Shown here is a 98-nucleotide sequence from Paenibacillus sp. YN15, a member of the family "Purine riboswitch aptamer".

RNA sequence: UGUAAUAUCAAUAAGGAUGUUCGUAUAACCCCUUAAUAUGGUCGGGGGUCUCUACCGGAAACCGUAAAUUUCCGUCUACGAAUGAGACUUUAACCAAC
Numbered sequence: 001u002g003u004a005a006u007a008u009c010a011a012u013a014a015g016g017a018u019g020u021u022c023g024u025a026u027a028a029c030c031c032c033u034u035a036a037u038a039u040g041g042u043c044g045g046g047g048g049u050c051u052c053u054a055c056c057g058g059a060a061a062c063c064g065u066a067a068a069u070u071u072c073c074g075u076c077u078a079c080g081a082a083u084g085a086g087a088c089u090u091u092a093a094c095c096a097a098c
Stems, first nucleotide, its partner, number of pairs: 018084008029047004056074006
Pairs were carried over by alignment from the consensus structure, which is taken from published work.
NCBI's taxonomy places the organism under Bacteria, Bacillati, Bacillota, Bacilli, Paenibacillus.